[Rfam]
RNA sequence: GCCGGUCCUCGGUAGUGGCCCUCUGGUGGAAACGCCCCAGAGGACUUCGAUCGAAGACCGGC
Numbered sequence: 001g002c003c004g005g006u007c008c009u010c011g012g013u014a015g016u017g018g019c020c021c022u023c024u025g026g027u028g029g030a031a032a033c034g035c036c037c038c039a040g041a042g043g044a045c046u047u048c049g050a051u052c053g054a055a056g057a058c059c060g061g062c
Stems, first nucleotide, its partner, number of pairs: 001062007009054005017046002020043007028035001
RNA: Actino-pnp RNA